[Rfam]
RNA sequence: GGAUGUGAGGGCAAUCUGGCUGUGGCAUCUGUCACUCCACUGAUCACCAGGGUUGAUUUGGCUGGGCUGGCUGGCUAGGUGGGUGUCCCCUUCUUCCCUCACCGCUCCGUGUGCGUCCCUCCUGAAGCUGCACACUCUGGUUGAAGAGGACGACCUUCCCGAUAGAGGAGGAUCGUUCUUCCAUCAGGGGUAUACGAAUAGCUGUGCUCUCCUGCUAGAACCUCCAGACAAGCUCUCAAGGGCCAUUUGUAGGAGAACGUAGGGUAGUCAAGCUUCCAAGACUCCAGACACAUCCCAGUGAGGUGCUGCAUGUGGCAGUCUGCCUUUCUUU
Numbered sequence: 001g002g003a004u005g006u007g008a009g010g011g012c013a014a015u016c017u018g019g020c021u022g023u024g025g026c027a028u029c030u031g032u033c034a035c036u037c038c039a040c041u042g043a044u045c046a047c048c049a050g051g052g053u054u055g056a057u058u059u060g061g062c063u064g065g066g067c068u069g070g071c072u073g074g075c076u077a078g079g080u081g082g083g084u085g086u087c088c089c090c091u092u093c094u095u096c097c098c099u100c101a102c103c104g105c106u107c108c109g110u111g112u113g114c115g116u117c118c119c120u121c122c123u124g125a126a127g128c129u130g131c132a133c134a135c136u137c138u139g140g141u142u143g144a145a146g147a148g149g150a151c152g153a154c155c156u157u158c159c160c161g162a163u164a165g166a167g168g169a170g171g172a173u174c175g176u177u178c179u180u181c182c183a184u185c186a187g188g189g190g191u192a193u194a195c196g197a198a199u200a201g202c203u204g205u206g207c208u209c210u211c212c213u214g215c216u217a218g219a220a221c222c223u224c225c226a227g228a229c230a231a232g233c234u235c236u237c238a239a240g241g242g243c244c245a246u247u248u249g250u251a252g253g254a255g256a257a258c259g260u261a262g263g264g265u266a267g268u269c270a271a272g273c274u275u276c277c278a279a280g281a282c283u284c285c286a287g288a289c290a291c292a293u294c295c296c297a298g299u300g301a302g303g304u305g306c307u308g309c310a311u312g313u314g315g316c317a318g319u320c321u322g323c324c325u326u327u328c329u330u331u
Stems, first nucleotide, its partner, number of pairs: 001108003005102007014092001018090002024087010035074002037070003042067001044065002047061002116171002118168004122139001124137002127135001141162003148158003201273003207267002210264006222255004228250005297330002300326005305319005
Dot-bracket structure: (((.(((((((..(...((....((((((((((.(((((..(.((.((...........))..)).))))..))...)))))))))).)).)...)))))))...))).......(((((((.((.(.......))).).(((....(((.....))).)))..)))).)).............................(((...((.((((((......((((..(((((.............))))).))))...)))))).))...))).......................((.((((((((((.....)))))..)))))..)).
Rfam assigns this 331-nucleotide RNA from Equus caballus to the family "7SK RNA". 7SK was discovered as an abundant small nuclear RNA in the mid-70s but a possible function has only recently been suggested. Two independent studies have found that 7SK RNA binds the CDK9/cyclin T complex (known as elongation factor P-TEFb). P-TEFb activates transcription by phosphorylating the C-terminal domain of RNA polymerase II. This process is negatively regulated by the 7SK RNP. The secondary structure of 7SK RNA shown here was proposed by Wasserman and Steitz on the basis of chemical modification and enzymatic cleavage experiments. This family contains a number of annotated pseudogenes and 7SK derived repeats. The threshold is artificially high to minimise the pseudogene count. The match comes from Rfam's covariance-model search (310 bits). Clan: 7SK clan.